The record is a 185-nucleotide sequence from Polioptila caerulea, which matches "U2 spliceosomal RNA" in Rfam. Lineage of the source: Eukaryota > Bilateria > Euteleostomi > Sarcopterygii > Polioptila. The base pairs follow the family's consensus structure, which is taken from published work. Rfam links the family to the GO terms pre-mRNA branch point binding, mRNA branch site recognition and U2 snRNP.
[Rfam]
RNA sequence: CUCUAAUCUCUGAUCUUUGUCUAAGGUCAAGUUUAACAUCUGUUCAUAACAGGUAAAUAUCUUUUAUAUCCUUGUCUUGAAGAUGUCAUAUUAAACAGACUUUUGGGGCCAAAGGGUGUGUUAGAACUUCUUCUGUCUGUCCAAUGCAUCUGCCUGCUGCUGCAGUGUCUCUAGAAGCAACACAC
Numbered sequence: 001c002u003c004u005a006a007u008c009u010c011u012g013a014u015c016u017u018u019g020u021c022u023a024a025g026g027u028c029a030a031g032u033u034u035a036a037c038a039u040c041u042g043u044u045c046a047u048a049a050c051a052g053g054u055a056a057a058u059a060u061c062u063u064u065u066a067u068a069u070c071c072u073u074g075u076c077u078u079g080a081a082g083a084u085g086u087c088a089u090a091u092u093a094a095a096c097a098g099a100c101u102u103u104u105g106g107g108g109c110c111a112a113a114g115g116g117u118g119u120g121u122u123a124g125a126a127c128u129u130c131u132u133c134u135g136u137c138u139g140u141c142c143a144a145u146g147c148a149u150c151u152g153c154c155u156g157c158u159g160c161u162g163c164a165g166u167g168u169c170u171c172u173a174g175a176a177g178c179a180a181c182a183c184a185c
Stems, first nucleotide, its partner, number of pairs: 007026003012021003047066003051062002068084003072080003114142005120136001123134004146178002149175003
Background:
It is annotated as a spliceosomal small nuclear RNA. The literature on the family includes a 1997 paper in Nucleic Acids Res by Zwieb, "The uRNA database".